[Rfam]
RNA sequence: CCACGGGUUAGGCAAACCUGGUGAAAGCCGGGGACGCUAAAGCUAUGGGUCUAACGCAAUAUUAUUGCUAUGAUUGCCAGGCUAUAACG
Numbered sequence: 001c002c003a004c005g006g007g008u009u010a011g012g013c014a015a016a017c018c019u020g021g022u023g024a025a026a027g028c029c030g031g032g033g034a035c036g037c038u039a040a041a042g043c044u045a046u047g048g049g050u051c052u053a054a055c056g057c058a059a060u061a062u063u064a065u066u067g068c069u070a071u072g073a074u075u076g077c078c079a080g081g082c083u084a085u086a087a088c089g
Stems, first nucleotide, its partner, number of pairs: 012037002017032006041083004046079003049074003056068004
RNA: c-di-GMP-I riboswitch aptamer